Notes: Shown here is a 102-nucleotide sequence from Neisseria gonorrhoeae, a member of the family "AniS". It is annotated as a non-coding RNA gene. The base pairs follow the family's consensus structure, which was predicted with CMfinder. The source organism's lineage runs through Bacteria, Pseudomonadati, Neisseriales, Neisseriaceae and Neisseria gonorrhoeae. It is one of the family's seed sequences.

[Rfam]
RNA sequence: AUGAAAUCUAGAUUGUUUGUUUGCUGUUUCCCAAUCCGUCUUGAUUUUACCUCUUUCCUCUUGAUGUGUGUUUGGGUGUGGCUGCCGCCACCCCUUUUUUUU
Numbered sequence: 001a002u003g004a005a006a007u008c009u010a011g012a013u014u015g016u017u018u019g020u021u022u023g024c025u026g027u028u029u030c031c032c033a034a035u036c037c038g039u040c041u042u043g044a045u046u047u048u049a050c051c052u053c054u055u056u057c058c059u060c061u062u063g064a065u066g067u068g069u070g071u072u073u074g075g076g077u078g079u080g081g082c083u084g085c086c087g088c089c090a091c092c093c094c095u096u097u098u099u100u101u102u
Stems, first nucleotide, its partner, number of pairs: 002049007010041004017034003074094003078091005